About this RNA
Shown here is a 77-nucleotide RNA sequence from Elachura formosa, a member of the family "mir-1788 microRNA precursor family".

[Rfam]
RNA sequence: CCGUCUCCGGGGCUUGUUUUCCGUUGCCUGUGGUUUGUUUCAGUGACUCAGGCAGCGAAAGCAAGCCUGGGAAGCUG
Dot-bracket structure: ..((.(((.(((((((((((.(((((((((.(..............).)))))))))))))))))))).))).))..
The family has 11 seed sequences and 504 matches in Rfam 15.1. A search with the family's covariance model found it, with a score of 88 bits.